A member of the RNA family "Small Cajal body specific RNA 4" from Struthio camelus, 129 nucleotides long. It scores 97 bits against the family's covariance model. On this family, see Darzacq et al., EMBO J 2002: "Cajal body-specific small nuclear RNAs: a novel class of 2'-O-methylation and pseudouridylation guide RNAs". Its Rfam clan is "SCARNA4 clan". It is annotated as a small Cajal body RNA. Rfam describes the family as follows. scaRNAs are a specific class of small nuclear RNAs which localise to the Cajal bodies and guide the modification of RNA polymerase II transcribed spliceosomal RNAs U1, U2, U4, U5 and U12.
[Rfam]
RNA sequence: ACUGGAGGACUAAUUAGAUGGAGUCUGAAGAGUGAGACUCUGUUAACACUAGCCUCCUGAAAGGAAAAGAAUGGAGAGAGCAGCCCUACUUGCAGAAGAGCAAAGGGCUGACUGCACCAUCCGACAUCA
Numbered sequence: 001a002c003u004g005g006a007g008g009a010c011u012a013a014u015u016a017g018a019u020g021g022a023g024u025c026u027g028a029a030g031a032g033u034g035a036g037a038c039u040c041u042g043u044u045a046a047c048a049c050u051a052g053c054c055u056c057c058u059g060a061a062a063g064g065a066a067a068a069g070a071a072u073g074g075a076g077a078g079a080g081c082a083g084c085c086c087u088a089c090u091u092g093c094a095g096a097a098g099a100g101c102a103a104a105g106g107g108c109u110g111a112c113u114g115c116a117c118c119a120u121c122c123g124a125c126a127u128c129a
Base pairs, nucleotide, nucleotide: 003060004057005056006055007054008053017044018043019042021040022039023038024037025036026035069121070120079113080112081110082109083108084107085106086105087104091102092101093100